[Rfam]
RNA sequence: GCGAAAACGAUAGCGCCAGGACUGAGCGAUCAGUUGACGAGGACCAGAUUUUUCGAAAGAUUCGGCGGGUGAUCUGGAGGCUUGAUACAGUCUAAGUAGAUGGACAAAAACAUGUCGUGAGGCGUGAACAGAGCCAUCGAGUAUCCUCCA
Numbered sequence: 001g002c003g004a005a006a007a008c009g010a011u012a013g014c015g016c017c018a019g020g021a022c023u024g025a026g027c028g029a030u031c032a033g034u035u036g037a038c039g040a041g042g043a044c045c046a047g048a049u050u051u052u053u054c055g056a057a058a059g060a061u062u063c064g065g066c067g068g069g070u071g072a073u074c075u076g077g078a079g080g081c082u083u084g085a086u087a088c089a090g091u092c093u094a095a096g097u098a099g100a101u102g103g104a105c106a107a108a109a110a111c112a113u114g115u116c117g118u119g120a121g122g123c124g125u126g127a128a129c130a131g132a133g134c135c136a137u138c139g140a141g142u143a144u145c146c147u148c149c150a
Base pairs, nucleotide, nucleotide: 020035021034022033023032024031025030044077045076046075047074048073053065054064055063056062078093079092080091081090082089097140099138100137101136102135103134111126112125113124114123115122116121
RNA: glmS glucosamine-6-phosphate activated ribozyme aptamer
Organism: Dubosiella newyorkensis